[Rfam]
A member of the RNA family "Plastid-psbN 5UTR RNA" from Selaginella moellendorffii, 61 nucleotides long. Taxonomically the source falls in Selaginella (Eukaryota, Viridiplantae, Selaginellaceae, Selaginelloideae). About the family: Plastid psbN is a non-coding RNA (ncRNA) recognised in plastids. It was reported as a conserved 11 stem-loop in the prime untranslated region (5UTR) of psbN genes. On this family, see Richter et al., Plant Commun 2023: "Retrograde signaling in plants: A critical review focusing on the GUN pathway and beyond".
Nucleotides: 061
Stems, first nucleotide, its partner, number of pairs: 017045002020042008
Number, partner (000 for none) and nucleotide at each position: 001000c002000g003000c004000g005000a006000c007000a008000c009000c010000c011000a012000u013000g014000a015000c016000g017045g018044g019000u020042g021041u022040g023039g024038u025037u026036c027035c028000c029000c030000a031000u032000c033000c034000g035027g036026g037025a038024g039023c040022c041021g042020c043000u044018c045017u046000g047000c048000c049000g050000u051000a052000c053000u054000c055000c056000g057000a058000a059000u060000u061000c